[Rfam]
RNA: S4-Flavobacteria ribosomal protein leader
Organism: Kordia sp. SMS9
RNA sequence: GAUUUCGAAGGACAGCCUUAAUUCAUAAUC
Numbered sequence: 001g002a003u004u005u006c007g008a009a010g011g012a013c014a015g016c017c018u019u020a021a022u023u024c025a026u027a028a029u030c
Base pairs, nucleotide, nucleotide: 001030002029003027005025007024008019009018010017011016